[Rfam]
RNA sequence: AAGUUAAUGCUAAUCGUGAUAGGGGUGGUUCAUGAGCAGACACCUAACAUGUUAGCAUUAUCUU
Numbered sequence: 001a002a003g004u005u006a007a008u009g010c011u012a013a014u015c016g017u018g019a020u021a022g023g024g025g026u027g028g029u030u031c032a033u034g035a036g037c038a039g040a041c042a043c044c045u046a047a048c049a050u051g052u053u054a055g056c057a058u059u060a061u062c063u064u
Stems, first nucleotide, its partner, number of pairs: 005060010020046004025041002
A member of the RNA family "mir-155 microRNA precursor family" from Larimichthys crocea, 64 nucleotides long. The base pairs follow the family's consensus structure, which was predicted with RNAalifold. It scores 57 bits against the family's covariance model. Rfam 15.1 lists 647 matches to the family in 617 species. Gene Ontology terms of the family: RISC complex and miRNA-mediated post-transcriptional gene silencing. The organism belongs to Larimichthys, within Eukaryota.